Small nucleolar RNA SNORD58: a 66-nucleotide sequence from Salvator merianae. The match comes from Rfam's covariance-model search (74 bits). The source organism's lineage runs through Eukaryota, Teleostomi, Tetrapoda, Unidentata and Salvator. About the family: snoRNA U58 is found in introns 1, 3 and 6 of the ribosomal protein RPL17 gene in humans.
RNA sequence: UGGCAAUGAUGACUUUCUUAGGACACCUUUGGAAUAUUCAUGAAACAAACUCAAGCUCUGAGCCAC
Numbered sequence: 001u002g003g004c005a006a007u008g009a010u011g012a013c014u015u016u017c018u019u020a021g022g023a024c025a026c027c028u029u030u031g032g033a034a035u036a037u038u039c040a041u042g043a044a045a046c047a048a049a050c051u052c053a054a055g056c057u058c059u060g061a062g063c064c065a066c
Base pairs, nucleotide, nucleotide: 001065002064003063004062